[Rfam]
RNA sequence: UUCUUAUCCAGAGAGGUGUAGGGACUGGCCUGUAGAUACCUCAGCAACCGUCAGCAUAUAGAGCUGAAAAGGUGCUAAUUCCAGCAGAUAAGAG
Numbered sequence: 001u002u003c004u005u006a007u008c009c010a011g012a013g014a015g016g017u018g019u020a021g022g023g024a025c026u027g028g029c030c031u032g033u034a035g036a037u038a039c040c041u042c043a044g045c046a047a048c049c050g051u052c053a054g055c056a057u058a059u060a061g062a063g064c065u066g067a068a069a070a071g072g073u074g075c076u077a078a079u080u081c082c083a084g085c086a087g088a089u090a091a092g093a094g
Stems, first nucleotide, its partner, number of pairs: 001094008013042005021031003025084004043076004048072002051067005080086001
Source information
The record is a 94-nucleotide RNA from Priestia taiwanensis, which matches "SAM riboswitch aptamer (S box leader)" in Rfam. Lineage of the source: Bacteria > Bacillati > Bacilli > Caryophanales > Priestia. The family is grouped with related families in Rfam's "SAM clan". It scores 71 bits against the family's covariance model.